Shown here is a 129-nucleotide sequence from Vigna radiata, a member of the family "Small nucleolar RNA snoR74". Rfam 15.1 lists 1,404 matches to the family in 223 species. Gene Ontology terms of the family: nucleolus and RNA processing. The family's RNA type in Rfam is H/ACA-box small nucleolar RNA. The match comes from Rfam's covariance-model search (102 bits). A reference for the family is Marker et al. (2002), "Experimental RNomics: identification of 140 candidates for small non-messenger RNAs in the plant Arabidopsis thaliana", Curr Biol.
RNA sequence: AAAAAAGCAGGGGUCUGUUGCCUUUGUAAGCAGUCCUCUCGUAACCUUCAGGAAUAUGCAAACCAUUGUUGUUGGGUGAACCUCUGUUAUCUGUUCGUGACUUAAGGUUCAGUAAAUGAUGGAACAUGG
Numbered sequence: 001a002a003a004a005a006a007g008c009a010g011g012g013g014u015c016u017g018u019u020g021c022c023u024u025u026g027u028a029a030g031c032a033g034u035c036c037u038c039u040c041g042u043a044a045c046c047u048u049c050a051g052g053a054a055u056a057u058g059c060a061a062a063c064c065a066u067u068g069u070u071g072u073u074g075g076g077u078g079a080a081c082c083u084c085u086g087u088u089a090u091c092u093g094u095u096c097g098u099g100a101c102u103u104a105a106g107g108u109u110c111a112g113u114a115a116a117u118g119a120u121g122g123a124a125c126a127u128g129g
Stems, first nucleotide, its partner, number of pairs: 005048003011037002015033003063122008077111007